[Rfam]
RNA sequence: GCGGAGGGCCGGAUGGCCGCGGGCGGCUCCGGUCGUCCGAGGAAAGUCCGGACUCCACAAGACAAAGGUGCCGGGUAACGCCCGGCCGGGGUAACCCGAGGGAAAGCGCCACAGAGAACAGACCGCCCCGUUUAUCGGGGUAAGGGUGAAACGGCGGUGUAAGAGACCACCGGGGGACUGGUAACAGGCCCCGCAUGGCAAGCCCCACCUGGAGCAAUGCCGAAUAGGAACCUCGCGCGGCAUGUCCGCAGGGUCGUCUUGGCCCGGAGGUUCGGGUUGGCAGCUAGAGGCACGCAGGCAACUGCGCGCCAAGAUGAAUGGUCAUCCAGAGCGUUUACGCUUGGACAGAAUCCGGCUUAUAGGCUCUCCGCGCAA
Numbered sequence: 001g002c003g004g005a006g007g008g009c010c011g012g013a014u015g016g017c018c019g020c021g022g023g024c025g026g027c028u029c030c031g032g033u034c035g036u037c038c039g040a041g042g043a044a045a046g047u048c049c050g051g052a053c054u055c056c057a058c059a060a061g062a063c064a065a066a067g068g069u070g071c072c073g074g075g076u077a078a079c080g081c082c083c084g085g086c087c088g089g090g091g092u093a094a095c096c097c098g099a100g101g102g103a104a105a106g107c108g109c110c111a112c113a114g115a116g117a118a119c120a121g122a123c124c125g126c127c128c129c130g131u132u133u134a135u136c137g138g139g140g141u142a143a144g145g146g147u148g149a150a151a152c153g154g155c156g157g158u159g160u161a162a163g164a165g166a167c168c169a170c171c172g173g174g175g176g177a178c179u180g181g182u183a184a185c186a187g188g189c190c191c192c193g194c195a196u197g198g199c200a201a202g203c204c205c206c207a208c209c210u211g212g213a214g215c216a217a218u219g220c221c222g223a224a225u226a227g228g229a230a231c232c233u234c235g236c237g238c239g240g241c242a243u244g245u246c247c248g249c250a251g252g253g254u255c256g257u258c259u260u261g262g263c264c265c266g267g268a269g270g271u272u273c274g275g276g277u278u279g280g281c282a283g284c285u286a287g288a289g290g291c292a293c294g295c296a297g298g299c300a301a302c303u304g305c306g307c308g309c310c311a312a313g314a315u316g317a318a319u320g321g322u323c324a325u326c327c328a329g330a331g332c333g334u335u336u337a338c339g340c341u342u343g344g345a346c347a348g349a350a351u352c353c354g355g356c357u358u359a360u361a362g363g364c365u366c367u368c369c370g371c372g373c374a375a
Stems, first nucleotide, its partner, number of pairs: 001371010011360001012326007020039008044358003048355005053214004061260002064257001066210005071085005086100001087098004101205002106203002108199003123145002125141006153171002156168003172194001173192004178187003218282004228273006251265005290309002293306005
RNA: Bacterial RNase P class A